[Rfam]
RNA: mir-551 microRNA precursor family
Organism: Lipotes vexillifer
RNA sequence: UGACCCUGGAAAUCCAGAGCGGGUGAGGCCUGUCUAUUACUAGGUGACCCACUCUUGGUUUCCAUGGUUG
Number, nucleotide and partner (000 for none) at each position: 001u000002g069003a068004c067005c066006c000007u064008g000009g062010a061011a060012a059013u058014c057015c000016a055017g054018a000019g000020c000021g050022g049023g048024u047025g000026a000027g000028g045029c044030c043031u042032g000033u000034c000035u000036a000037u000038u000039a000040c000041u000042a031043g030044g029045u028046g000047a024048c023049c022050c021051a000052c000053u000054c017055u016056u000057g014058g013059u012060u011061u010062c009063c000064a007065u000066g005067g004068u003069u002070g000